The record is a 135-nucleotide RNA from Hungateiclostridiaceae bacterium KB18, which matches "FMN riboswitch aptamer (RFN element)" in Rfam.
The RFN element is a highly conserved domain that is found frequently in the 5'-untranslated regions of prokaryotic mRNAs that encode for flavin mononucleotide (FMN) biosynthesis and transport proteins.
The family's consensus secondary structure is taken from published work.
The match comes from Rfam's covariance-model search (109 bits).
RNA sequence: AAAGGUCUUCGGGGCAAGGUGAAAUUCCUUACCGGCAGUAAAGUCUGCGAGCGGAGCCGAAGCGGAGAGUUUCGGCGCGUUGAACCGGUGUGAUUCCGGUACCGACGGUUAGAGUCCGGAGGAGAGAAGAUUUUG
Numbered sequence: 001a002a003a004g005g006u007c008u009u010c011g012g013g014g015c016a017a018g019g020u021g022a023a024a025u026u027c028c029u030u031a032c033c034g035g036c037a038g039u040a041a042a043g044u045c046u047g048c049g050a051g052c053g054g055a056g057c058c059g060a061a062g063c064g065g066a067g068a069g070u071u072u073c074g075g076c077g078c079g080u081u082g083a084a085c086c087g088g089u090g091u092g093a094u095u096c097c098g099g100u101a102c103c104g105a106c107g108g109u110u111a112g113a114g115u116c117c118g119g120a121g122g123a124g125a126g127a128a129g130a131u132u133u134u135g
Stems, first nucleotide, its partner, number of pairs: 003133008017029003031115002033104002035048004043102002051080003084100005106118003